Shown here is a 70-nucleotide RNA from Triplophysa rosa, a member of the family "mir-24 microRNA precursor family". It scores 71 bits against the family's covariance model. The family's consensus secondary structure was predicted with RNAalifold. A reference for the family is Lagos-Quintana et al. (2001), "Identification of novel genes coding for small expressed RNAs", Science. Rfam links the family to the GO terms RISC complex and miRNA-mediated post-transcriptional gene silencing. Rfam 15.1 lists 1,372 matches to the family in 601 species.

RNA sequence: UCCUCUUGUGCCUGCUAAACUGGUAUCAGUUUGUAUGUAUAGCGCUGGCUCAGUUCAGCAGGAACAGGAG
Numbered sequence: 001u002c003c004u005c006u007u008g009u010g011c012c013u014g015c016u017a018a019a020c021u022g023g024u025a026u027c028a029g030u031u032u033g034u035a036u037g038u039a040u041a042g043c044g045c046u047g048g049c050u051c052a053g054u055u056c057a058g059c060a061g062g063a064a065c066a067g068g069a070g
Base pairs, nucleotide, nucleotide: 003070004069005068006067008065009064011062012061013060015058016057018055019054020053021052022051023050026048027047028046029045030044